[Rfam]
RNA: c-di-GMP-I-GGC riboswitch aptamer
Organism: Nitrosospira sp. Nsp14
RNA sequence: AGGAAUAAAGCCAAACCCGUUGCGAAGCGGGGACGGAAAGCUGCGGGUCUCCCCGUCAGGGAAGUCAGCCGGGCUGCUCCUA
Numbered sequence: 001a002g003g004a005a006u007a008a009a010g011c012c013a014a015a016c017c018c019g020u021u022g023c024g025a026a027g028c029g030g031g032g033a034c035g036g037a038a039a040g041c042u043g044c045g046g047g048u049c050u051c052c053c054c055g056u057c058a059g060g061g062a063a064g065u066c067a068g069c070c071g072g073g074c075u076g077c078u079c080c081u082a
Stems, first nucleotide, its partner, number of pairs: 003079002011036002016031006034068001039075004044071003047066001049064001